[Rfam]
This 124-nucleotide RNA sequence from Gossypium australe belongs to the Rfam family "MIR7504 microRNA precursor family". The match comes from Rfam's covariance-model search (96 bits). The source organism's lineage runs through Eukaryota, Euphyllophyta, Spermatophyta, eudicotyledons and Gossypium.
RNA sequence: AAUACGUGAAUGGCAAAUCAGAUUUUUUUCUCUUGAUUUUCAGCUUUUUCCUCCUCAAAUAAUUCAAAUCUAACUGAAAAUACUAAAAAUCAAGAGGAAAAGUCUAAUUUAUCAUUCUUCGAUU
Numbered sequence: 001a002a003u004a005c006g007u008g009a010a011u012g013g014c015a016a017a018u019c020a021g022a023u024u025u026u027u028u029u030c031u032c033u034u035g036a037u038u039u040u041c042a043g044c045u046u047u048u049u050c051c052u053c054c055u056c057a058a059a060u061a062a063u064u065c066a067a068a069u070c071u072a073a074c075u076g077a078a079a080a081u082a083c084u085a086a087a088a089a090u091c092a093a094g095a096g097g098a099a100a101a102g103u104c105u106a107a108u109u110u111a112u113c114a115u116u117c118u119u120c121g122a123u124u
Base pairs, nucleotide, nucleotide: 001124002123003122006119008117009116010115011114012113013112015110016109017108018107020105021104022103023102025101026100027099028098030096031095032094033093034092035091036090037089038088039087040086042084043083046080047079048078049077